The record is a 126-nucleotide RNA sequence from Otolemur garnettii, which matches "Small nucleolar RNA SNORA11" in Rfam.
Its family is annotated with nucleolus and RNA processing in the Gene Ontology.
About the family: U107 (SNORA11) is a member of the H/ACA class of snoRNAs that guide the sites of modification of uridines to pseudouridines. This snoRNA was identified by RT-PCR from blood cells and its expression confirmed by Northern blot analysis. There is no predicted target for this guide snRNA.
The family's consensus secondary structure was predicted with RNAalifold.
Rfam classes the family as an H/ACA-box small nucleolar RNA.
The match comes from Rfam's covariance-model search (93 bits).
RNA sequence: AAGACGUGCUCAGAACAGGGAGCCUGAAGAAUGGCUUCUGUUUAUAACACCGCCAACGGGAAUCUGGGAUCACUGUAAUGAGGGGCACAAAACUUGUGGCGUCCCUACAAAGCAAUUCCUAAACGU
Numbered sequence: 001a002a003g004a005c006g007u008g009c010u011c012a013g014a015a016c017a018g019g020g021a022g023c024c025u026g027a028a029g030a031a032u033g034g035c036u037u038c039u040g041u042u043u044a045u046a047a048c049a050c051c052g053c054c055a056a057c058g059g060g061a062a063u064c065u066g067g068g069a070u071c072a073c074u075g076u077a078a079u080g081a082g083g084g085g086c087a088c089a090a091a092a093c094u095u096g097u098g099g100c101g102u103c104c105c106u107a108c109a110a111a112g113c114a115a116u117u118c119c120u121a122a123a124c125g126u
Stems, first nucleotide, its partner, number of pairs: 003053001006050003013043007022035003067119003074114002076111001079109002082102001084100001086098005